[Rfam]
Nucleotides: 056
Base pairs, nucleotide, nucleotide: 006024007023008022009021010020011019012017031051032050033049034048035047036046
Number, partner (000 for none) and nucleotide at each position: 001000a002000c003000c004000g005000g006024a007023c008022c009021c010020g011019g012017u013000g014000a015000a016000a017012a018000u019011c020010c021009g022008g023007g024006u025000g026000g027000c028000u029000c030000u031051u032050c033049c034048g035047g036046c037000c038000g039000c040000u041000g042000a043000u044000c045000c046036g047035c048034c049033g050032g051031a052000u053000a054000a055000c056000c
Rfam assigns this 56-nucleotide RNA sequence from Allobosea sp. RAC05 to the family "sul1 RNA". The organism belongs to Allobosea, within Bacteria. It is annotated as a riboswitch. The family's consensus secondary structure is taken from published work.